[Rfam]
RNA sequence: ACUUAAAAGUAUAUUCUAUCUACGGAUAGUUCAUACUCUUUCUAGACCUUGCGUCUACUCAACUCAACUAAACGAAAUUUUCAUCUUUUGGCGUUUGGGUUUUCCUAAAUGCCAAAGGGUGCUUGCCAAUAUUUCGGUUAGGCUGCCCCAUUUUGCUUAAAAGUAGUGUGCCUCGUACACUCCCUGCCGUAGUGUUCCGUCACUACAGAUCACAGUGUGCCUGGACCCUCUACUGUUCCGUCAGUGGAGGUGUGUGGAUACAGUGUUCCGUCGCUGUUGAAACCACUAACAUAAGCAAUGGCUUGCAGUCAGUACACACUUGCAG
Numbered sequence: 001a002c003u004u005a006a007a008a009g010u011a012u013a014u015u016c017u018a019u020c021u022a023c024g025g026a027u028a029g030u031u032c033a034u035a036c037u038c039u040u041u042c043u044a045g046a047c048c049u050u051g052c053g054u055c056u057a058c059u060c061a062a063c064u065c066a067a068c069u070a071a072a073c074g075a076a077a078u079u080u081u082c083a084u085c086u087u088u089u090g091g092c093g094u095u096u097g098g099g100u101u102u103u104c105c106u107a108a109a110u111g112c113c114a115a116a117g118g119g120u121g122c123u124u125g126c127c128a129a130u131a132u133u134u135c136g137g138u139u140a141g142g143c144u145g146c147c148c149c150a151u152u153u154u155g156c157u158u159a160a161a162a163g164u165a166g167u168g169u170g171c172c173u174c175g176u177a178c179a180c181u182c183c184c185u186g187c188c189g190u191a192g193u194g195u196u197c198c199g200u201c202a203c204u205a206c207a208g209a210u211c212a213c214a215g216u217g218u219g220c221c222u223g224g225a226c227c228c229u230c231u232a233c234u235g236u237u238c239c240g241u242c243a244g245u246g247g248a249g250g251u252g253u254g255u256g257g258a259u260a261c262a263g264u265g266u267u268c269c270g271u272c273g274c275u276g277u278u279g280a281a282a283c284c285a286c287u288a289a290c291a292u293a294a295g296c297a298a299u300g301g302c303u304u305g306c307a308g309u310c311a312g313u314a315c316a317c318a319c320u321u322g323c324a325g
Stems, first nucleotide, its partner, number of pairs: 005040002008037005016029005043057005074135005080129001084119006091112008143308003151300001153298006160292001163290001164288005177218004187208001189206006227250009254283002260277006
The record is a 325-nucleotide sequence from Alphacoronavirus ricketti, which matches "Alphacoronavirus 5'UTR" in Rfam. The match comes from Rfam's covariance-model search (227 bits). On this family, see Madhugiri et al., Adv Virus Res 2016: "Coronavirus cis-Acting RNA Elements". The family is grouped with related families in Rfam's "Coronavirus 5' UTR". The first 150 to 200 nucleotides within the 5' UTR of alphacoronaviruses are highly structured and shown to be conserved on the structural level among alphacoronaviruses. The 5' UTR has been predicted to contain 3 conserved stem-loops: SL1, SL2 and SL4. SL1 is important for viral replication, most likely playing a role in the template-switch of viral subgenomic RNA transcription. Mutations of the upper part of SL1 seems to have an higher impact of viral replication level.